This 107-nucleotide sequence from Marinococcus luteus belongs to the Rfam family "SAM riboswitch aptamer (S box leader)". The organism belongs to Marinococcus, within Bacteria.
RNA sequence: UUCUUAUCAAGAGAGAUGGAGGGAUCGGCCCUUGGAAGUCUCAGCAACCAGCCGCAGGUGAUGCGGUCAGGUGCUAACUCCUGCAAGCAGUGCUUGCGAGAUGAGAA
Numbered sequence: 001u002u003c004u005u006a007u008c009a010a011g012a013g014a015g016a017u018g019g020a021g022g023g024a025u026c027g028g029c030c031c032u033u034g035g036a037a038g039u040c041u042c043a044g045c046a047a048c049c050a051g052c053c054g055c056a057g058g059u060g061a062u063g064c065g066g067u068c069a070g071g072u073g074c075u076a077a078c079u080c081c082u083g084c085a086a087g088c089a090g091u092g093c094u095u096g097c098g099a100g101a102u103g104a105g106a107a
Stems, first nucleotide, its partner, number of pairs: 001107008013042005021031003025083001027081002043075004048071002051067004079099001084096005
About the family: The SAM riboswitch is found upstream of a number of genes which code for proteins involved in methionine or cysteine biosynthesis in Gram-positive bacteria.